[Rfam]
RNA sequence: GAUGGAUAAACCCAGAGGCCGCAGACAGCAGGUGCUCCUCCGGGAGCUUAAAGUGGCCUGCCGAGGCCGGUGGGCGGCGCGUAUUUCUCCGUUGUCACGGAGGGAUAGAUCGGCCCUUGCUUCGGCAGGGGCUUUAUCUUUGCCUUG
Numbered sequence: 001g002a003u004g005g006a007u008a009a010a011c012c013c014a015g016a017g018g019c020c021g022c023a024g025a026c027a028g029c030a031g032g033u034g035c036u037c038c039u040c041c042g043g044g045a046g047c048u049u050a051a052a053g054u055g056g057c058c059u060g061c062c063g064a065g066g067c068c069g070g071u072g073g074g075c076g077g078c079g080c081g082u083a084u085u086u087c088u089c090c091g092u093u094g095u096c097a098c099g100g101a102g103g104g105a106u107a108g109a110u111c112g113g114c115c116c117u118u119g120c121u122u123c124g125g126c127a128g129g130g131g132c133u134u135u136a137u138c139u140u141u142g143c144c145u146u147g
Base pairs, nucleotide, nucleotide: 028061029060030059031058032057033056034047035046036045037044038043113132114131115130116129117128118127119126120125